The record is a 117-nucleotide sequence from Paenirhizobium daejeonense, which matches "ALIL pseudoknot" in Rfam. On this family, see Mazauric et al., J Biol Chem 2008: "Apical loop-internal loop RNA pseudoknots: a new type of stimulator of -1 translational frameshifting in bacteria". The match comes from Rfam's covariance-model search (110 bits). It is annotated as a cis-regulatory element. Its family is annotated with positive regulation of translational frameshifting in the Gene Ontology.
[Rfam]
RNA sequence: CGCGUAUUUUGCCCAAGCGGAGCUCGACCGCCCACUGAAGCGAUGAUUUCCUUCAUCGACGAACACCGCUCGGUGCUCGGGGUCGAGCCGAUCUGCAGGCUGCUGCCGAUUGCCCCG
Numbered sequence: 001c002g003c004g005u006a007u008u009u010u011g012c013c014c015a016a017g018c019g020g021a022g023c024u025c026g027a028c029c030g031c032c033c034a035c036u037g038a039a040g041c042g043a044u045g046a047u048u049u050c051c052u053u054c055a056u057c058g059a060c061g062a063a064c065a066c067c068g069c070u071c072g073g074u075g076c077u078c079g080g081g082g083u084c085g086a087g088c089c090g091a092u093c094u095g096c097a098g099g100c101u102g103c104u105g106c107c108g109a110u111u112g113c114c115c116c117g
Base pairs, nucleotide, nucleotide: 017031018030019029020028078117079116080115081114082113089112090111092109093108095106096105097104098103